[Rfam]
RNA sequence: AGCCUUUGUGUUGCCCAUUCACUUUUGGAAACUAGUGAAUGUGGUGUCAAAAAAGGCAUAAAUAAAUGCUUCUGCAGCUGUUUCCGAUCCUUAAAUUUUGUAUCUUUGGUAUAGGAGCUGCUUAAGUAACAAUU
Numbered sequence: 001a002g003c004c005u006u007u008g009u010g011u012u013g014c015c016c017a018u019u020c021a022c023u024u025u026u027g028g029a030a031a032c033u034a035g036u037g038a039a040u041g042u043g044g045u046g047u048c049a050a051a052a053a054a055g056g057c058a059u060a061a062a063u064a065a066a067u068g069c070u071u072c073u074g075c076a077g078c079u080g081u082u083u084c085c086g087a088u089c090c091u092u093a094a095a096u097u098u099u100g101u102a103u104c105u106u107u108g109g110u111a112u113a114g115g116a117g118c119u120g121c122u123u124a125a126g127u128a129a130c131a132a133u134u
Stems, first nucleotide, its partner, number of pairs: 002057006009049002012046004016041008068127004074121005083116003087112002089109002094103001

The record is a 134-nucleotide RNA from Jaculus jaculus, which matches "Small nucleolar RNA SNORA13" in Rfam. The family's RNA type in Rfam is H/ACA-box small nucleolar RNA. Its Rfam clan is "SNORA13 clan". Its family is annotated with RNA processing and nucleolus in the Gene Ontology. About the family: ACA13 is a member of the H/ACA class of snoRNA that guide the sites of modification of uridines to pseudouridines. The match comes from Rfam's covariance-model search (136 bits). NCBI's taxonomy places the organism under Eukaryota, Deuterostomia, Euarchontoglires, Dipodidae, Jaculus.